[Rfam]
RNA: Molybdenum/Tungsten riboswitch aptamer (Moco RNA motif)
Organism: Geoalkalibacter ferrihydriticus
RNA sequence: AAAUUAUCGUUCCUCCGAGCUGCACGACCUAAAGGGGAAGGCCCCAAGGGUCGCGCGGCCGAUGGGUUUCGCUGGAAACGGCGGAGCCUCCUUUUCGGAAAGGAGAUCGACCAUGAUGGAA
Numbered sequence: 001a002a003a004u005u006a007u008c009g010u011u012c013c014u015c016c017g018a019g020c021u022g023c024a025c026g027a028c029c030u031a032a033a034g035g036g037g038a039a040g041g042c043c044c045c046a047a048g049g050g051u052c053g054c055g056c057g058g059c060c061g062a063u064g065g066g067u068u069u070c071g072c073u074g075g076a077a078a079c080g081g082c083g084g085a086g087c088c089u090c091c092u093u094u095u096c097g098g099a100a101a102g103g104a105g106a107u108c109g110a111c112c113a114u115g116a117u118g119g120a121a
Stems, first nucleotide, its partner, number of pairs: 013105004019059005025053005034045003064089011090098002
Dot-bracket structure: ............((((..(((((.(((((....(((......)))...))))).)))))....(((((((((((....)))))))))))((.....))...))))................